[Rfam]
RNA sequence: GCCGGUCCUCGGUUGUGGCCCUCGGGAACGUCUGACCCGCGGGCUUCCAUCGAAGACCGGC
Numbered sequence: 001g002c003c004g005g006u007c008c009u010c011g012g013u014u015g016u017g018g019c020c021c022u023c024g025g026g027a028a029c030g031u032c033u034g035a036c037c038c039g040c041g042g043g044c045u046u047c048c049a050u051c052g053a054a055g056a057c058c059g060g061c
Base pairs, nucleotide, nucleotide: 001061002060003059004058005057006056007055009053010052011051012050013049017045018044019043020042021041023039024038025037026036

About this RNA:
Actino-pnp RNA: a 61-nucleotide RNA from Jiangella aurantiaca. The source organism's lineage runs through Bacteria, Actinomycetota, Actinomycetes, Jiangellales and Jiangella.